RNA sequence: GUCAGAGGUCGGGUCUUUGCAGGCAAGGUGAGUUCUAUGCAUUCUCUCAACUGGCCUUCAAAGUCCCAAUUUUUGGC
Numbered sequence: 001g002u003c004a005g006a007g008g009u010c011g012g013g014u015c016u017u018u019g020c021a022g023g024c025a026a027g028g029u030g031a032g033u034u035c036u037a038u039g040c041a042u043u044c045u046c047u048c049a050a051c052u053g054g055c056c057u058u059c060a061a062a063g064u065c066c067c068a069a070u071u072u073u074u075g076g077c
Stems, first nucleotide, its partner, number of pairs: 003075006011067003015063005021057004026052002029049002
RNA: mir-193 microRNA precursor family